This 93-nucleotide RNA sequence from Musa acuminata belongs to the Rfam family "MIR319 microRNA precursor family". A search with the family's covariance model found it, with a score of 56 bits. The organism belongs to Musa acuminata, within Eukaryota. Rfam 15.1 lists 168 matches to the family in 79 species.
RNA sequence: AAGAAAUAGGAGCUCCCUUCAGUCCAAAGCAAUAUGAAGAGAUAACAUCUAGGAAAUGAUAUUGUUUUGGUCUGAAAGCAGCUCCCAUUUCUG
Number, nucleotide and partner (000 for none) at each position: 001a000002a000003g000004a000005a000006a000007u087008a000009g085010g084011a083012g082013c081014u080015c000016c078017c000018u076019u000020c000021a073022g072023u000024c070025c069026a068027a067028a066029g000030c000031a000032a000033u000034a000035u000036g000037a000038a000039g000040a000041g000042a000043u000044a000045a000046c000047a000048u000049c000050u000051a000052g000053g000054a000055a000056a000057u000058g000059a000060u000061a000062u000063u000064g000065u000066u028067u027068u026069g025070g024071u000072c022073u021074g000075a000076a018077a000078g016079c000080a014081g013082c012083u011084c010085c009086c000087a007088u000089u000090u000091c000092u000093g000